A member of the RNA family "Purine riboswitch aptamer" from Clostridium carboxidivorans, 101 nucleotides long. Pairs were carried over by alignment from the consensus structure, which is taken from published work. The family has 133 seed sequences and 4,097 matches in Rfam 15.1. The match comes from Rfam's covariance-model search (75 bits). Rfam links the family to the GO term purine nucleobase biosynthetic process.
[Rfam]
RNA sequence: UGGUGUAUCAUGCAAGAAACUCGUAUAUAUUCGGAAAUAUGGUCCGAAGGUUUCUACCUGCUACCGUUAAUUAGCAGACUACGAGGUAUUGAUUUUAGUUU
Numbered sequence: 001u002g003g004u005g006u007a008u009c010a011u012g013c014a015a016g017a018a019a020c021u022c023g024u025a026u027a028u029a030u031u032c033g034g035a036a037a038u039a040u041g042g043u044c045c046g047a048a049g050g051u052u053u054c055u056a057c058c059u060g061c062u063a064c065c066g067u068u069a070a071u072u073a074g075c076a077g078a079c080u081a082c083g084a085g086g087u088a089u090u091g092a093u094u095u096u097a098g099u100u101u
Stems, first nucleotide, its partner, number of pairs: 018087001020085006030048006058077006